[Rfam]
RNA: Avian HBV RNA encapsidation signal epsilon
Organism: Oceanodroma tethys
RNA sequence: UACAAGGUAUUUUUACGUCUAACUUGCUGUUGCUCGUUUUGGCUGUACCUUGGGUA
Numbered sequence: 001u002a003c004a005a006g007g008u009a010u011u012u013u014u015a016c017g018u019c020u021a022a023c024u025u026g027c028u029g030u031u032g033c034u035c036g037u038u039u040u041g042g043c044u045g046u047a048c049c050u051u052g053g054g055u056a
Stems, first nucleotide, its partner, number of pairs: 001056003005051001006049005017043003026033002